[Rfam]
RNA sequence: GCACCUAAAUCUUUCCCAUUUCUUGCGGUGCAGUGCAGGCCUGGGGACAAGCUGGUGCUAUAACACAGCAGAGGAAAUCCAGACAGGUUGCUUUGCACUUUAAUUGGGACUUGUCUCUACAACUCUGCAACACCU
Numbered sequence: 001g002c003a004c005c006u007a008a009a010u011c012u013u014u015c016c017c018a019u020u021u022c023u024u025g026c027g028g029u030g031c032a033g034u035g036c037a038g039g040c041c042u043g044g045g046g047a048c049a050a051g052c053u054g055g056u057g058c059u060a061u062a063a064c065a066c067a068g069c070a071g072a073g074g075a076a077a078u079c080c081a082g083a084c085a086g087g088u089u090g091c092u093u094u095g096c097a098c099u100u101u102a103a104u105u106g107g108g109a110c111u112u113g114u115c116u117c118u119a120c121a122a123c124u125c126u127g128c129a130a131c132a133c134c135u
Stems, first nucleotide, its partner, number of pairs: 001058005013047006021039002068128006081116008096106002
The record is a 135-nucleotide RNA from Pelusios castaneus, which matches "Small nucleolar RNA SNORA55" in Rfam. Rfam classes the family as an H/ACA-box small nucleolar RNA. Lineage of the source: Eukaryota > Eumetazoa > Craniata > Vertebrata > Pelusios. The family has 29 seed sequences and 1,476 matches in Rfam 15.1. A search with the family's covariance model found it, with a score of 125 bits. ACA55 is a member of the H/ACA class of snoRNA that guide the sites of modification of uridines to pseudouridines.